Source information: The family of this 138-nucleotide sequence from Brachypodium distachyon is "small nucleolar RNA snoR135". It is annotated as an H/ACA-box small nucleolar RNA. Rfam links the family to the GO terms RNA processing and nucleolus. The organism belongs to Brachypodium, within Eukaryota. For this family Rfam cites "Mining small RNA sequencing data: a new approach to identify small nucleolar RNAs in Arabidopsis" (Chen and Wu, Nucleic Acids Res, 2009).
[Rfam]
RNA sequence: CUUGCAGGAUAAGUGUGUAUCGGCCUAAUGCCAUUCGCUAUGCAUUUCUGCUGAAAGUGUUUCCUGCUAUAUCAAUAUGGAAAAUGGGCAGUUGUGUUAAGCUUUGUGCUUUCUUCAACAAUCAUUUUCCACUCAUCU
Numbered sequence: 001c002u003u004g005c006a007g008g009a010u011a012a013g014u015g016u017g018u019a020u021c022g023g024c025c026u027a028a029u030g031c032c033a034u035u036c037g038c039u040a041u042g043c044a045u046u047u048c049u050g051c052u053g054a055a056a057g058u059g060u061u062u063c064c065u066g067c068u069a070u071a072u073c074a075a076u077a078u079g080g081a082a083a084a085u086g087g088g089c090a091g092u093u094g095u096g097u098u099a100a101g102c103u104u105u106g107u108g109c110u111u112u113c114u115u116c117a118a119c120a121a122u123c124a125u126u127u128u129c130c131a132c133u134c135a136u137c138u
Stems, first nucleotide, its partner, number of pairs: 004067006015045006078131010091119004